[Rfam]
RNA sequence: UAAACAGAUUGAGGAGCAAUUGACAAGAGUAACUAUAAGGAGCCAGCCAGCUAUGAGAUAUAGUAAAAGGGGAGAUUGCCGAAAUUUUGGUUUUGUGAGGCAGACAAAUCAAUUUUGGGAAUGCAGAUAACAUCUGUAUAACUGUCAUUGAAUAUUCAAUGUUGUGCUUUCUGUGAG
Numbered sequence: 001u002a003a004a005c006a007g008a009u010u011g012a013g014g015a016g017c018a019a020u021u022g023a024c025a026a027g028a029g030u031a032a033c034u035a036u037a038a039g040g041a042g043c044c045a046g047c048c049a050g051c052u053a054u055g056a057g058a059u060a061u062a063g064u065a066a067a068a069g070g071g072g073a074g075a076u077u078g079c080c081g082a083a084a085u086u087u088u089g090g091u092u093u094u095g096u097g098a099g100g101c102a103g104a105c106a107a108a109u110c111a112a113u114u115u116u117g118g119g120a121a122u123g124c125a126g127a128u129a130a131c132a133u134c135u136g137u138a139u140a141a142c143u144g145u146c147a148u149u150g151a152a153u154a155u156u157c158a159a160u161g162u163u164g165u166g167c168u169u170u171c172u173g174u175g176a177g
Stems, first nucleotide, its partner, number of pairs: 006172003011167001016079006024071001032064006083116002087112007117143002121139007146161006
Background: Shown here is a 177-nucleotide RNA sequence from Fusobacterium varium, a member of the family "Lysine riboswitch aptamer". Lineage of the source: Bacteria > Fusobacteriota > Fusobacteriia > Fusobacterium > Fusobacterium varium. Its family is annotated with lysine biosynthetic process in the Gene Ontology. The match comes from Rfam's covariance-model search (86 bits). Pairs were carried over by alignment from the consensus structure, which is taken from published work.